[Rfam]
RNA sequence: GAAGACCCUGUUGAGCUUGACUCUAGUCCGGCUUUGUGAAAUGACGCUGGAGGCGUAGAAUAAGUGGGAGGCGGUGCCUGGUCGCCGUCGGACCUUGAAAUACCACUACUCCGGACGUUAUUUCGCUCACUCAAUUAGGUGGGAGCGGCCUGCCCGUCAAACGGCGGUGCCUCUUUCUGGAGCCAAAACAAGUACGCACGCGGGAUCCAGCCUGCUCGUGUGGGUUGUCCUUCACGGGGUGGCCUGCAUGGACAGGUUCUCGCCUCUGCCUUGUUGACCCAAUAUCAGGUUGAGGACAUAGUCAGGUGGGGAGUUUGGCUGGGGCGGCACAUCUGUUAAAAGAUAACGCAGGUGUCCUAAGAUGAGCUCAAUGAGAACAGAAAUCUCAUGUGGAACAAAAGGGUAAAAGCUCAUUUGAUUUUGAUUUUCAGUACGAAUACAAACUGUGAAAGCAUGGCCUAUCGAUCCUUUAGAGUCGUUUAUUUAUAUUUCGGGAUUUGAAGCUAGAGGUGUCAGAAAAGUUACCACAGGGAUAACUGGCUUGUGGCGGCCAAGCGUUCAUAGCGACGUCGCUUUUUGAUCCUUCGAUGU
Numbered sequence: 001g002a003a004g005a006c007c008c009u010g011u012u013g014a015g016c017u018u019g020a021c022u023c024u025a026g027u028c029c030g031g032c033u034u035u036g037u038g039a040a041a042u043g044a045c046g047c048u049g050g051a052g053g054c055g056u057a058g059a060a061u062a063a064g065u066g067g068g069a070g071g072c073g074g075u076g077c078c079u080g081g082u083c084g085c086c087g088u089c090g091g092a093c094c095u096u097g098a099a100a101u102a103c104c105a106c107u108a109c110u111c112c113g114g115a116c117g118u119u120a121u122u123u124c125g126c127u128c129a130c131u132c133a134a135u136u137a138g139g140u141g142g143g144a145g146c147g148g149c150c151u152g153c154c155c156g157u158c159a160a161a162c163g164g165c166g167g168u169g170c171c172u173c174u175u176u177c178u179g180g181a182g183c184c185a186a187a188a189c190a191a192g193u194a195c196g197c198a199c200g201c202g203g204g205a206u207c208c209a210g211c212c213u214g215c216u217c218g219u220g221u222g223g224g225u226u227g228u229c230c231u232u233c234a235c236g237g238g239g240u241g242g243c244c245u246g247c248a249u250g251g252a253c254a255g256g257u258u259c260u261c262g263c264c265u266c267u268g269c270c271u272u273g274u275u276g277a278c279c280c281a282a283u284a285u286c287a288g289g290u291u292g293a294g295g296a297c298a299u300a301g302u303c304a305g306g307u308g309g310g311g312a313g314u315u316u317g318g319c320u321g322g323g324g325c326g327g328c329a330c331a332u333c334u335g336u337u338a339a340a341a342g343a344u345a346a347c348g349c350a351g352g353u354g355u356c357c358u359a360a361g362a363u364g365a366g367c368u369c370a371a372u373g374a375g376a377a378c379a380g381a382a383a384u385c386u387c388a389u390g391u392g393g394a395a396c397a398a399a400a401g402g403g404u405a406a407a408a409g410c411u412c413a414u415u416u417g418a419u420u421u422u423g424a425u426u427u428u429c430a431g432u433a434c435g436a437a438u439a440c441a442a443a444c445u446g447u448g449a450a451a452g453c454a455u456g457g458c459c460u461a462u463c464g465a466u467c468c469u470u471u472a473g474a475g476u477c478g479u480u481u482a483u484u485u486a487u488a489u490u491u492c493g494g495g496a497u498u499u500g501a502a503g504c505u506a507g508a509g510g511u512g513u514c515a516g517a518a519a520a521g522u523u524a525c526c527a528c529a530g531g532g533a534u535a536a537c538u539g540g541c542u543u544g545u546g547g548c549g550g551c552c553a554a555g556c557g558u559u560c561a562u563a564g565c566g567a568c569g570u571c572g573c574u575u576u577u578u579g580a581u582c583c584u585u586c587g588a589u590g591u
Stems, first nucleotide, its partner, number of pairs: 007531004012527002014523005020314004027306002030303004036126010047114006063107005071089001130294005140281004148170002151167001187275005317330001318328003331353006356457002362414006368394002371389006395404002419443003424438004445454003468509006489503004540581001542579001544578001546574006555565002
Shown here is a 591-nucleotide part of an RNA, a member of the family "Eukaryotic large subunit ribosomal RNA".
It scores 2865 bits against the family's covariance model.